[Rfam]
Molybdenum/Tungsten riboswitch aptamer (Moco RNA motif): a 122-nucleotide RNA sequence from Syntrophotalea acetylenica. It scores 71 bits against the family's covariance model. The base pairs follow the family's consensus structure, which is taken from published work.

RNA sequence: AUGUGCGCCAGUCUCCGAGCCAGUCUUGCCUAAGGGGAAGGCCCCCAGGGCAGGCGGCCAAAGGGUUCCGCUGGAAACGGCGGUGCCUCCCGCGCUUGGAAAGGAGAUAUGCCCGGAAUUCC
Numbered sequence: 001a002u003g004u005g006c007g008c009c010a011g012u013c014u015c016c017g018a019g020c021c022a023g024u025c026u027u028g029c030c031u032a033a034g035g036g037g038a039a040g041g042c043c044c045c046c047a048g049g050g051c052a053g054g055c056g057g058c059c060a061a062a063g064g065g066u067u068c069c070g071c072u073g074g075a076a077a078c079g080g081c082g083g084u085g086c087c088u089c090c091c092g093c094g095c096u097u098g099g100a101a102a103g104g105a106g107a108u109a110u111g112c113c114c115g116g117a118a119u120u121c122c
Stems, first nucleotide, its partner, number of pairs: 004115001011108006019058003023055004028051003034046004063088004068083006089099002
About this RNA
A reference for the family is Regulski et al. (2008), "in molybdenum cofactor and tungsten cofactor metabolism", Mol Microbiol.